[Rfam]
RNA sequence: UCUUCCGAGGAGCGUUGCAACCGCCACUUUAGCUUGGCGGCCAGGCUCGGAACCGUGACAACGGCGCUCACCCGCA
Numbered sequence: 001u002c003u004u005c006c007g008a009g010g011a012g013c014g015u016u017g018c019a020a021c022c023g024c025c026a027c028u029u030u031a032g033c034u035u036g037g038c039g040g041c042c043a044g045g046c047u048c049g050g051a052a053c054c055g056u057g058a059c060a061a062c063g064g065c066g067c068u069c070a071c072c073c074g075c076a
Stems, first nucleotide, its partner, number of pairs: 003052006021040006